Background
The family of this 218-nucleotide part of an RNA from Chromerida sp. RM11 is "Eukaryotic large subunit ribosomal RNA". On this family, see Yusupov et al., Science 2001: "Crystal structure of the ribosome at 5.5 A resolution". The base pairs follow the family's consensus structure, which is taken from published work. The source organism's lineage runs through Eukaryota, Sar, Alveolata and Colpodellida.
RNA sequence: CGAAUGGGACCAGUAGUGUAUCGAACGAAACUGUCUUCACUCAGUUAAGCCUUGCUUGGCACCGCAAGGGCCAUUUAAGGUGGCGCUGUGGAGUGCGGUGUAAGUUCGAUGCAAUGUCAGCAUCAGUUGAUGUCUCGCUGUGAGACCUCGACUGAGGAAUGCGGCUUCGGCCUAGGAUGCUGACUAAAUGGUUCCAUCCGACCCGUCUUGAAACACGG
Numbered sequence: 001c002g003a004a005u006g007g008g009a010c011c012a013g014u015a016g017u018g019u020a021u022c023g024a025a026c027g028a029a030a031c032u033g034u035c036u037u038c039a040c041u042c043a044g045u046u047a048a049g050c051c052u053u054g055c056u057u058g059g060c061a062c063c064g065c066a067a068g069g070g071c072c073a074u075u076u077a078a079g080g081u082g083g084c085g086c087u088g089u090g091g092a093g094u095g096c097g098g099u100g101u102a103a104g105u106u107c108g109a110u111g112c113a114a115u116g117u118c119a120g121c122a123u124c125a126g127u128u129g130a131u132g133u134c135u136c137g138c139u140g141u142g143a144g145a146c147c148u149c150g151a152c153u154g155a156g157g158a159a160u161g162c163g164g165c166u167u168c169g170g171c172c173u174a175g176g177a178u179g180c181u182g183a184c185u186a187a188a189u190g191g192u193u194c195c196a197u198c199c200g201a202c203c204c205g206u207c208u209u210g211a212a213a214c215a216c217g218g
Base pairs, nucleotide, nucleotide: 001200002199004197005196006195007194008193009192010191011190012189057182058181059180060179061178063176203218204217205216206215